[Rfam]
RNA sequence: GUAGGAAAUCUGGUUAGUUUUCCGCAGUUCGCGUAAAACUGAAAAGAUUUGUUACAG
Number, nucleotide and partner (000 for none) at each position: 001g055002u054003a053004g052005g000006a050007a049008a048009u047010c046011u045012g000013g000014u000015u041016a040017g039018u038019u037020u036021u035022c000023c033024g032025c000026a000027g000028u000029u000030c000031g000032c024033g023034u000035a021036a020037a019038a018039c017040u016041g015042a000043a000044a000045a011046g010047a009048u008049u007050u006051g000052u004053u003054a002055c001056a000057g000